The family of this 93-nucleotide RNA sequence from Isachenkonia alkalipeptolytica is "Selenocysteine transfer RNA". It scores 74 bits against the family's covariance model. The organism belongs to Isachenkonia, within Bacteria.
[Rfam]
RNA sequence: GGGAGUAGAUGGGUACUGGUGUGCCCUCUGGUCUUCAAAACCAGCACGAGGGGUUAGUAGCCUCUUGGGUAGGUUCGAUUCCUAUGUACUCCC
Numbered sequence: 001g002g003g004a005g006u007a008g009a010u011g012g013g014u015a016c017u018g019g020u021g022u023g024c025c026c027u028c029u030g031g032u033c034u035u036c037a038a039a040a041c042c043a044g045c046a047c048g049a050g051g052g053g054u055u056a057g058u059a060g061c062c063u064c065u066u067g068g069g070u071a072g073g074u075u076c077g078a079u080u081c082c083u084a085u086g087u088a089c090u091c092c093c
Stems, first nucleotide, its partner, number of pairs: 001093007009085001011026006028044005047067005070084004